[Rfam]
RNA: gabT RNA
Organism: Pseudomonas cremoricolorata
RNA sequence: GGUGGCCAGGACGCGCGCGGCAGUCGAUCAACGAAUACUGUCCGCGGCGCACCCAGCCACC
Number, nucleotide and partner (000 for none) at each position: 001g061002g060003u059004g058005g057006c056007c000008a000009g000010g000011a000012c000013g048014c047015g000016c046017g045018c044019g043020g041021c040022a039023g038024u037025c033026g032027a000028u000029c000030a000031a000032c026033g025034a000035a000036u000037a024038c023039u022040g021041u020042c000043c019044g018045c017046g016047g014048c013049g000050c000051a000052c000053c000054c000055a000056g006057c005058c004059a003060c002061c001